Rfam assigns this 49-nucleotide RNA sequence to the family "chrB-b RNA".

[Rfam]
RNA sequence: CGGGGCACGGCAGACGCCCCGUCAGGCGGCUCGAUCGUCCAAGUUCUGC
Numbered sequence: 001c002g003g004g005g006c007a008c009g010g011c012a013g014a015c016g017c018c019c020c021g022u023c024a025g026g027c028g029g030c031u032c033g034a035u036c037g038u039c040c041a042a043g044u045u046c047u048g049c
Stems, first nucleotide, its partner, number of pairs: 001021006010049005025039005
The family's consensus secondary structure is taken from published work. The family's RNA type in Rfam is cis-regulatory element.